Plastid-ycf3 group II-D1 intron: a 44-nucleotide RNA from Lactuca sativa. About the family: Plastid rpl16 is a non-coding RNA (ncRNA) recognised in plastids. It was recognised in and intronic region of a ribosome rpl16 gene. NCBI's taxonomy places the organism under Eukaryota, Tracheophyta, Euphyllophyta, Gunneridae, Lactuca. A reference for the family is Richter et al. (2023), "Retrograde signaling in plants: A critical review focusing on the GUN pathway and beyond", Plant Commun. The family has 385 seed sequences and 1,488 matches in Rfam 15.1. The family's consensus secondary structure was predicted with LocARNA.
RNA sequence: AUUCCUUCUGUCGUGUAUCAUUGAUUAAUGCAGCCUCAGGUGCU
Numbered sequence: 001a002u003u004c005c006u007u008c009u010g011u012c013g014u015g016u017a018u019c020a021u022u023g024a025u026u027a028a029u030g031c032a033g034c035c036u037c038a039g040g041u042g043c044u
Stems, first nucleotide, its partner, number of pairs: 010025004032044003